[Rfam]
RNA sequence: UUCGGCCUCGCUGUAUUUUCUAUGCAGCCCUCUGCAAGCCGUUGUCGCCGCAUUCCUACUCGAAUACUUCGCUACACCAGCAGGCGAUCCAGUCGCCUUGUUUAGCGGCGCGGC
Numbered sequence: 001u002u003c004g005g006c007c008u009c010g011c012u013g014u015a016u017u018u019u020c021u022a023u024g025c026a027g028c029c030c031u032c033u034g035c036a037a038g039c040c041g042u043u044g045u046c047g048c049c050g051c052a053u054u055c056c057u058a059c060u061c062g063a064a065u066a067c068u069u070c071g072c073u074a075c076a077c078c079a080g081c082a083g084g085c086g087a088u089c090c091a092g093u094c095g096c097c098u099u100g101u102u103u104a105g106c107g108g109c110g111c112g113g114c
Stems, first nucleotide, its partner, number of pairs: 010028006038114004043110005084096005